A member of the RNA family "tRNA" from an Olavius algarvensis Gamma 3 endosymbiont, 84 nucleotides long.
[Rfam]
RNA sequence: GCCGGGGUGGCGGAACUGGUAGACGCGGCGGAUUCAAAAUCCGCUGGUGGUAACACCUUGGGGGUUCGAGCCCCCCCCCCGGUA
Numbered sequence: 001g002c003c004g005g006g007g008u009g010g011c012g013g014a015a016c017u018g019g020u021a022g023a024c025g026c027g028g029c030g031g032a033u034u035c036a037a038a039a040u041c042c043g044c045u046g047g048u049g050g051u052a053a054c055a056c057c058u059u060g061g062g063g064g065u066u067c068g069a070g071c072c073c074c075c076c077c078c079c080c081g082g083u084a
Stems, first nucleotide, its partner, number of pairs: 001083007010026003028044005060076005
Dot-bracket structure: (((((((..(((...........))).(((((.......)))))...............(((((.......)))))))))))).
Background
Lineage of the source: Bacteria > Pseudomonadati > Pseudomonadota > Gammaproteobacteria.